[Rfam]
RNA sequence: UCUGGGAGUAGAGGAGCAAAGAUCAUUAGUAAGUAAAUGGAGAAACGUGAGUUUCUUUGAAGUUUACUGAAAGGGGAAUUUGCCGAAGCUAAGGCAUGCUCACGCAGUCAAGGCUGGUCUUACAUUGAACAAAUGUAUGGCUGUCAUAUAAGGACAACCUUAUAUGGAGGGCUAUCUCACGC
Numbered sequence: 001u002c003u004g005g006g007a008g009u010a011g012a013g014g015a016g017c018a019a020a021g022a023u024c025a026u027u028a029g030u031a032a033g034u035a036a037a038u039g040g041a042g043a044a045a046c047g048u049g050a051g052u053u054u055c056u057u058u059g060a061a062g063u064u065u066a067c068u069g070a071a072a073g074g075g076g077a078a079u080u081u082g083c084c085g086a087a088g089c090u091a092a093g094g095c096a097u098g099c100u101c102a103c104g105c106a107g108u109c110a111a112g113g114c115u116g117g118u119c120u121u122a123c124a125u126u127g128a129a130c131a132a133a134u135g136u137a138u139g140g141c142u143g144u145c146a147u148a149u150a151a152g153g154a155c156a157a158c159c160u161u162a163u164a165u166g167g168a169g170g171g172c173u174a175u176c177u178c179a180c181g182c
Base pairs, nucleotide, nucleotide: 006177008175009174010173011172016083017082018081019080020079023076024075032068033067034066035065036064037063038062087115088114089113090112093109094108095107116142117141118140119139121137122136123135124134125133126132144167145166146165147164148163149162150161